The record is a 233-nucleotide RNA sequence from Streptomyces sp. ISL-96, which matches "Streptomyces sRNA 4677" in Rfam. Rfam classes the family as a small RNA. From the family's description: Located in the intergenic region between anti-sigma factor SCO4677 gene and a putative regulatory protein gene SCO4676. scr4677 expression requires the SCO4677 activity and scr4677 sRNA itself seem to affect the levels of the SCO4676-associated transcripts. On this family, see Hindra et al., PLoS One 2014: "Complex intra-operonic dynamics mediated by a small RNA in Streptomyces coelicolor".
[Rfam]
RNA sequence: CGACCCGGUGUUCCGCGACGCAAAACACUUAAAAACUUGAGAGAAAGGAACCUUCCCAGCCCAUCCCGUCUUUCAUCACCCACACGGGUGAUUGAGCGAAUUCGGGUGUGAUGCGAGGGAGUUGGCGGGCUAGUGUGCUGCCGCAGCAGACAACUCCAGAGACUUUGACGGCCACCGGCCGGGACGGCAAUCCCGACCGGGGCCUCACCACCCAGGAAGUCGAGACCUUCCCC
Numbered sequence: 001c002g003a004c005c006c007g008g009u010g011u012u013c014c015g016c017g018a019c020g021c022a023a024a025a026c027a028c029u030u031a032a033a034a035a036c037u038u039g040a041g042a043g044a045a046a047g048g049a050a051c052c053u054u055c056c057c058a059g060c061c062c063a064u065c066c067c068g069u070c071u072u073u074c075a076u077c078a079c080c081c082a083c084a085c086g087g088g089u090g091a092u093u094g095a096g097c098g099a100a101u102u103c104g105g106g107u108g109u110g111a112u113g114c115g116a117g118g119g120a121g122u123u124g125g126c127g128g129g130c131u132a133g134u135g136u137g138c139u140g141c142c143g144c145a146g147c148a149g150a151c152a153a154c155u156c157c158a159g160a161g162a163c164u165u166u167g168a169c170g171g172c173c174a175c176c177g178g179c180c181g182g183g184a185c186g187g188c189a190a191u192c193c194c195g196a197c198c199g200g201g202g203c204c205u206c207a208c209c210a211c212c213c214a215g216g217a218a219g220u221c222g223a224g225a226c227c228u229u230c231c232c233c
Base pairs, nucleotide, nucleotide: 007212008211009210010209017070018069019068020067076091077090078089079088080087081086105142106141108138109137170204171203172202173201176199177198178197181194182193183192184191215231216230217229218228219227